[Rfam]
RNA sequence: AGAAAGUCCCGGACUGCGGCUGUGCGGAUGGCAAGCUUGCUUGCACAGACGCACGGACAUAGGACGGGCUGGACAGUACGAGUACGAGGGAUGCCGUCAGGCAGACCGGAAAGUGCGAGUACUGUCAGCAGAUGGCGGGAGUGCGAAGCAAGGAGCCAUCUGACUUUCG
Numbered sequence: 001a002g003a004a005a006g007u008c009c010c011g012g013a014c015u016g017c018g019g020c021u022g023u024g025c026g027g028a029u030g031g032c033a034a035g036c037u038u039g040c041u042u043g044c045a046c047a048g049a050c051g052c053a054c055g056g057a058c059a060u061a062g063g064a065c066g067g068g069c070u071g072g073a074c075a076g077u078a079c080g081a082g083u084a085c086g087a088g089g090g091a092u093g094c095c096g097u098c099a100g101g102c103a104g105a106c107c108g109g110a111a112a113g114u115g116c117g118a119g120u121a122c123u124g125u126c127a128g129c130a131g132a133u134g135g136c137g138g139g140a141g142u143g144c145g146a147a148g149c150a151a152g153g154a155g156c157c158a159u160c161u162g163a164c165u166u167u168c169g
Base pairs, nucleotide, nucleotide: 002168003167004166005165006164007163008068009067010066011065015061016060018058020056021055022054023053024052025051026050029047030046031044032043033042034041035040072126073125074124075123076122077121078120079119082116083115084114085113089107090106092103093102094101095100130161131160132159133158134157135156136155142150143149144148
Dot-bracket structure: .((((((((((...((.(.(((((((..(((((((....))))).))..))))))).).))...))))...((((((((..((((...((.((((....))))..)).....))))..))))))))...(((((((.....(((...)))....))))))).)))))).
Notes: The family of this 169-nucleotide sequence from Blautia sp. An249 is "Clostridiales-1 RNA". Pairs were carried over by alignment from the consensus structure, which is taken from published work. Lineage of the source: Bacteria > Bacillota > Lachnospirales > Lachnospiraceae > Blautia. Rfam 15.1 lists 1,172 matches to the family in 137 species. The match comes from Rfam's covariance-model search (94 bits).